[Rfam]
RNA sequence: AUACGUGUAGGGUGGAGAUGCACAACCGUCGGACUGUGUAGCAUUAGGCUUGUUCAAGACGCUUCAUAUCGUCCACACCCGCGGUUGAUUCCUCCUCCUGACUCAGUUUUGCUUAAAGCGGGGCUUAUGCCACCACAGCAAGCAGGAAGCGUCGGUCGCGACUUCGCCACUCGGUCGAAAUCUCGCCAGACACUGGAAUGGCCCGCCACUCCAUGACGCACCUGACACCGACCGUGAGAAGUCGUGUGUGCCGAACGCCGUUUCCGGCAGCCCGGAAACCGA
Numbered sequence: 001a002u003a004c005g006u007g008u009a010g011g012g013u014g015g016a017g018a019u020g021c022a023c024a025a026c027c028g029u030c031g032g033a034c035u036g037u038g039u040a041g042c043a044u045u046a047g048g049c050u051u052g053u054u055c056a057a058g059a060c061g062c063u064u065c066a067u068a069u070c071g072u073c074c075a076c077a078c079c080c081g082c083g084g085u086u087g088a089u090u091c092c093u094c095c096u097c098c099u100g101a102c103u104c105a106g107u108u109u110u111g112c113u114u115a116a117a118g119c120g121g122g123g124c125u126u127a128u129g130c131c132a133c134c135a136c137a138g139c140a141a142g143c144a145g146g147a148a149g150c151g152u153c154g155g156u157c158g159c160g161a162c163u164u165c166g167c168c169a170c171u172c173g174g175u176c177g178a179a180a181u182c183u184c185g186c187c188a189g190a191c192a193c194u195g196g197a198a199u200g201g202c203c204c205g206c207c208a209c210u211c212c213a214u215g216a217c218g219c220a221c222c223u224g225a226c227a228c229c230g231a232c233c234g235u236g237a238g239a240a241g242u243c244g245u246g247u248g249u250g251c252c253g254a255a256c257g258c259c260g261u262u263u264c265c266g267g268c269a270g271c272c273c274g275g276a277a278a279c280c281g282a
Stems, first nucleotide, its partner, number of pairs: 014095004023087006030081003036076003040050003058073004096147005150218004155191003158186004164178003168174001195212003199208003225249004229244004260279007
The family of this 282-nucleotide RNA sequence from Pseudomonas asplenii is "rne-II RNA".